[Rfam]
RNA sequence: GGAUGUGAGGGCAAUCUGGCUGCGACAUCUGUCACCCCAUUGAUCGCCAGGGUUGAUUCGGCUGAUCUGGCUGGCUAGGCGGGUGUCCCCUUCCUCCCUCACCGCUCCAUGUGCGUCCCUCCCGAAGCUGCCCGCUCGGUCGAAGAGGACGACCUUCCCCGAUAGAGGAGGACCGUUCUUCGGUCAAGGGUAUACGAGUAGCUGCGCUCCCCUGCUAGAACCUCCAAACAAGCUCUCAAAAAAUACUUUAUUUCUUAAGUAAACGAUUCAUUAUGUCUCGAACAUAAAUUGUUCAAAGGCUUUUCCAAU
Number, nucleotide and partner (000 for none) at each position: 001g108002g107003a106004u000005g102006u101007g100008a099009g098010g097011g096012c000013a000014a092015u000016c000017u000018g090019g089020c000021u000022g000023c000024g087025a086026c085027a084028u083029c082030u081031g080032u079033c078034a000035c074036c073037c070038c069039a068040u000041u000042g067043a066044u065045c064046g062047c061048c060049a000050g000051g000052g000053u000054u000055g000056a000057u000058u000059c000060g048061g047062c046063u000064g045065a044066u043067c042068u039069g038070g037071c000072u000073g036074g035075c000076u000077a000078g033079g032080c031081g030082g029083g028084u027085g026086u025087c024088c000089c019090c018091u000092u014093c000094c000095u000096c011097c010098c009099u008100c007101a006102c005103c000104g000105c000106u003107c002108c001109a000110u000111g000112u000113g000114c000115g000116u171117c170118c168119c167120u166121c165122c139123c138124g137125a136126a000127g135128c134129u000130g000131c000132c000133c000134g128135c127136u125137c124138g123139g122140u162141c161142g160143a000144a000145g000146a000147g158148g157149a156150c000151g000152a000153c000154c000155u000156u149157c148158c147159c000160c142161g141162a140163u000164a000165g121166a120167g119168g118169a000170g117171g116172a000173c000174c000175g000176u000177u000178c000179u000180u000181c000182g000183g000184u000185c000186a000187a000188g000189g000190g000191u000192a000193u000194a000195c000196g000197a000198g000199u000200a000201g269202c000203u000204g000205c000206g000207c000208u262209c000210c000211c259212c000213u257214g256215c000216u000217a000218g000219a000220a000221c000222c000223u250224c000225c000226a000227a000228a000229c000230a000231a247232g246233c000234u000235c000236u000237c000238a000239a000240a000241a000242a000243a000244u000245a000246c232247u231248u000249u000250a223251u000252u000253u000254c000255u000256u214257a213258a000259g211260u000261a000262a208263a000264c000265g000266a000267u000268u000269c201270a000271u000272u000273a000274u000275g000276u000277c000278u000279c000280g000281a000282a000283c000284a000285u000286a000287a000288a000289u000290u000291g000292u000293u000294c000295a000296a000297a000298g000299g000300c000301u000302u000303u000304u000305c000306c000307a000308a000309u000
RNA: 7SK RNA